Shown here is a 237-nucleotide RNA from Monosporascus sp. MC13-8B, a member of the family "Small nucleolar RNA snR191". The literature on the family includes a 2003 paper in RNA by Badis et al., "A snoRNA that guides the two most conserved pseudouridine modifications within rRNA confers a growth advantage in yeast". The family's RNA type in Rfam is H/ACA-box small nucleolar RNA. The match comes from Rfam's covariance-model search (57 bits). Taxonomically the source falls in Monosporascus (Eukaryota, Opisthokonta, Ascomycota, leotiomyceta).
RNA sequence: CCCCAAUGCUUCCUGUCAGGACACUUUCUACAUUCUUCGAUGGAAGAUCGUCUGUUACAUCAUUGGGAGAUUGAAAUUUCGAGCUUGCUGUUCCGACGUCGUUUUGACCAGGGACUGACCGGGUCCCGUUUUGGGGCACUGUCGUUAGCCCGAGUUUGUUUCAUUUUGAGUUGAAAUCUACCUCCGCCCGUUCCGGGUGGCUAGGUGGUGGAUUUCUUAGUAAUGAUUCAUACAUCU
Numbered sequence: 001c002c003c004c005a006a007u008g009c010u011u012c013c014u015g016u017c018a019g020g021a022c023a024c025u026u027u028c029u030a031c032a033u034u035c036u037u038c039g040a041u042g043g044a045a046g047a048u049c050g051u052c053u054g055u056u057a058c059a060u061c062a063u064u065g066g067g068a069g070a071u072u073g074a075a076a077u078u079u080c081g082a083g084c085u086u087g088c089u090g091u092u093c094c095g096a097c098g099u100c101g102u103u104u105u106g107a108c109c110a111g112g113g114a115c116u117g118a119c120c121g122g123g124u125c126c127c128g129u130u131u132u133g134g135g136g137c138a139c140u141g142u143c144g145u146u147a148g149c150c151c152g153a154g155u156u157u158g159u160u161u162c163a164u165u166u167u168g169a170g171u172u173g174a175a176a177u178c179u180a181c182c183u184c185c186g187c188c189c190g191u192u193c194c195g196g197g198u199g200g201c202u203a204g205g206u207g208g209u210g211g212a213u214u215u216c217u218u219a220g221u222a223a224u225g226a227u228u229c230a231u232a233c234a235u236c237u
Stems, first nucleotide, its partner, number of pairs: 003066005019053004024046005077154002081149001085114002088111003098108003117143002123137006157230002161226004173216004179210004184200007